[Rfam]
RNA sequence: GCAUCGGUUUAGCUCAAUGGUUACUUCCUACAUCAAACGUAUCUACUCAACCGGUCCGCGGGCUAGAGAGUUCAACCACGGGCGCUGUCCGAUGUUUUU
Numbered sequence: 001g002c003a004u005c006g007g008u009u010u011a012g013c014u015c016a017a018u019g020g021u022u023a024c025u026u027c028c029u030a031c032a033u034c035a036a037a038c039g040u041a042u043c044u045a046c047u048c049a050a051c052c053g054g055u056c057c058g059c060g061g062g063c064u065a066g067a068g069a070g071u072u073c074a075a076c077c078a079c080g081g082g083c084g085c086u087g088u089c090c091g092a093u094g095u096u097u098u099u
Base pairs, nucleotide, nucleotide: 002094003093004092005091006090007089012083013082014081015080018078019077020076025068026067027066
Rfam assigns this 99-nucleotide sequence from Cyclopterus lumpus to the family "Vault RNA". For this family Rfam cites "Evolution of Vault RNAs" (Stadler et al., Mol Biol Evol, 2009). The family has 73 seed sequences and 2,873 matches in Rfam 15.1. Rfam describes the family as follows. This family of RNAs are found as part of the enigmatic vault ribonucleoprotein complex. The complex consists of a major vault protein (MVP), two minor vault proteins (VPARP and TEP1), and several small untranslated RNA molecules. It has been suggested that the vault complex is involved in drug resistance. It is annotated as a non-coding RNA gene. The family's consensus secondary structure is taken from published work.